The family of this 117-nucleotide RNA sequence from Streptomyces brasiliensis is "Group II catalytic intron D1-D4-2". Group II introns are found in rRNA, tRNA and mRNA of organelles in fungi, plants and protists, and also in mRNA in bacteria. A reference for the family is Bonen and Vogel (2001), "The ins and outs of group II introns", Trends Genet. The source organism's lineage runs through Bacteria, Actinomycetota, Actinomycetes, Kitasatosporales and Streptomyces.

RNA sequence: GAAGGUAGGUCCUUCGGCAUCGACAUGCAGGUGCAGGUGCCAAACCACCAUGAGCUGCUGCGGUGAAUGAGCCGUGGUGGUGAGCGUCAUGGAAAAGCCAUACGGAAUGCGGCAGGU
Numbered sequence: 001g002a003a004g005g006u007a008g009g010u011c012c013u014u015c016g017g018c019a020u021c022g023a024c025a026u027g028c029a030g031g032u033g034c035a036g037g038u039g040c041c042a043a044a045c046c047a048c049c050a051u052g053a054g055c056u057g058c059u060g061c062g063g064u065g066a067a068u069g070a071g072c073c074g075u076g077g078u079g080g081u082g083a084g085c086g087u088c089a090u091g092g093a094a095a096a097g098c099c100a101u102a103c104g105g106a107a108u109g110c111g112g113c114a115g116g117u
Stems, first nucleotide, its partner, number of pairs: 001015005016041006024033003046116001048092006054081002057078003061074004097113003101109002
The family has 144 seed sequences and 1,231 matches in Rfam 15.1.
Gene Ontology term of the family: Group II intron splicing.